[Rfam]
RNA: Glycine riboswitch aptamer
Organism: Ilyobacter polytropus
RNA sequence: CCUCUGGAGAGAAUUGGUUAAUUCUAGUCACCGAAGGAGUAAUACUCUCAGGUAAAAGGACAGAGG
Numbered sequence: 001c002c003u004c005u006g007g008a009g010a011g012a013a014u015u016g017g018u019u020a021a022u023u024c025u026a027g028u029c030a031c032c033g034a035a036g037g038a039g040u041a042a043u044a045c046u047c048u049c050a051g052g053u054a055a056a057a058g059g060a061c062a063g064a065g066g
Stems, first nucleotide, its partner, number of pairs: 001066006013028004030053003033049002037047003